The record is a 91-nucleotide RNA sequence from Paramicrobacterium humi, which matches "Glycine riboswitch aptamer" in Rfam. Rfam describes the family as follows. This family represents the bacterial glycine riboswitch.
RNA sequence: GCCACUCUGAAAAGCGAAGCGACGCGCUUCCGCCCACGGUGAAAGCCGCCUUCCGCGGUGAAGCUCUCAGGCCAAUGACAGAGGGGGAGUU
Numbered sequence: 001g002c003c004a005c006u007c008u009g010a011a012a013a014g015c016g017a018a019g020c021g022a023c024g025c026g027c028u029u030c031c032g033c034c035c036a037c038g039g040u041g042a043a044a045g046c047c048g049c050c051u052u053c054c055g056c057g058g059u060g061a062a063g064c065u066c067u068c069a070g071g072c073c074a075a076u077g078a079c080a081g082a083g084g085g086g087g088a089g090u091u
Stems, first nucleotide, its partner, number of pairs: 002086002005083005016030004032072003036067001039066001041064001045059004